[Rfam]
The record is a 77-nucleotide RNA from Clostridium sp. CAG:413, which matches "Gut-1 RNA" in Rfam.
NCBI's taxonomy places the organism under Bacteria, Clostridia, Eubacteriales, Clostridiaceae, Clostridium.

RNA sequence: CAACGAAAUCCACCCUUUGGGUGGGUGAAAUAUUGCUUCGCAAUGUGAAAUGCGCCUGACGGCGCGUGAAAUCGCUG
Numbered sequence: 001c002a003a004c005g006a007a008a009u010c011c012a013c014c015c016u017u018u019g020g021g022u023g024g025g026u027g028a029a030a031u032a033u034u035g036c037u038u039c040g041c042a043a044u045g046u047g048a049a050a051u052g053c054g055c056c057u058g059a060c061g062g063c064g065c066g067u068g069a070a071a072u073c074g075c076u077g
Stems, first nucleotide, its partner, number of pairs: 008026008030046006050067007